[Rfam]
RNA sequence: GGUCCGGUCGGCCGCUGACCUCCUCAAAGAACCGGGGAAAGAACUACCCGCCCACCCACCCUCCCCGCGCCGGCGGGCGGGCGUCACCCGUGCGAGUGACCGGCUUGCAGGGGCGGGACACGGACCAUUACGUUCGCCGCGACAACCGCAAACAGAUACGGCCCCCGGCCGGGACGGCAAUCCCGAUCGAGGGCCUGACCGAUCAGGAAGAGUGCACUUCCCG
Numbered sequence: 001g002g003u004c005c006g007g008u009c010g011g012c013c014g015c016u017g018a019c020c021u022c023c024u025c026a027a028a029g030a031a032c033c034g035g036g037g038a039a040a041g042a043a044c045u046a047c048c049c050g051c052c053c054a055c056c057c058a059c060c061c062u063c064c065c066c067g068c069g070c071c072g073g074c075g076g077g078c079g080g081g082c083g084u085c086a087c088c089c090g091u092g093c094g095a096g097u098g099a100c101c102g103g104c105u106u107g108c109a110g111g112g113g114c115g116g117g118a119c120a121c122g123g124a125c126c127a128u129u130a131c132g133u134u135c136g137c138c139g140c141g142a143c144a145a146c147c148g149c150a151a152a153c154a155g156a157u158a159c160g161g162c163c164c165c166c167g168g169c170c171g172g173g174a175c176g177g178c179a180a181u182c183c184c185g186a187u188c189g190a191g192g193g194c195c196u197g198a199c200c201g202a203u204c205a206g207g208a209a210g211a212g213u214g215c216a217c218u219u220c221c222c223g
Stems, first nucleotide, its partner, number of pairs: 001204004010071003084099004089094001112138005160195005166189002171184004206221005
Dot-bracket structure: ((((.....(((........................................................)))............((((.(....).))))............(((((.................))))).....................(((((.((...((((......))))...)).))))).....)))).(((((......)))))..